[Rfam]
RNA sequence: GAUCGGGUCCGGGCCCCUCUGGCGGUCGAGGCGUUGACCGUGAUGUCGGACCCUUCCA
Numbered sequence: 001g002a003u004c005g006g007g008u009c010c011g012g013g014c015c016c017c018u019c020u021g022g023c024g025g026u027c028g029a030g031g032c033g034u035u036g037a038c039c040g041u042g043a044u045g046u047c048g049g050a051c052c053c054u055u056c057c058a
Base pairs, nucleotide, nucleotide: 006052007051008050009049010048011047012046022041023040024039025038026037027036028035029034
This 58-nucleotide sequence belongs to the Rfam family "terC RNA". The sequence is in the family's curated seed alignment.